Notes: The record is a 105-nucleotide sequence from Paratissierella segnis, which matches "S10-Clostridia ribosomal protein leader" in Rfam. Taxonomically the source falls in Paratissierella (Bacteria, Bacillota, Tissierellia, Tissierellales).
RNA sequence: GACAUGCGAUGAAGCAAAAGGUGGCCUCGUAAUUAAGGCUUGUUUAUCGGAUUGAGUGCGAGGGGAAUUUUUGCGGAGAAUGUCCGAUUUAAAAUCGGGCGGCUA
Numbered sequence: 001g002a003c004a005u006g007c008g009a010u011g012a013a014g015c016a017a018a019a020g021g022u023g024g025c026c027u028c029g030u031a032a033u034u035a036a037g038g039c040u041u042g043u044u045u046a047u048c049g050g051a052u053u054g055a056g057u058g059c060g061a062g063g064g065g066a067a068u069u070u071u072u073g074c075g076g077a078g079a080a081u082g083u084c085c086g087a088u089u090u091a092a093a094a095u096c097g098g099g100c101g102g103c104u105a
Stems, first nucleotide, its partner, number of pairs: 014074003018071004025063007082103003088099003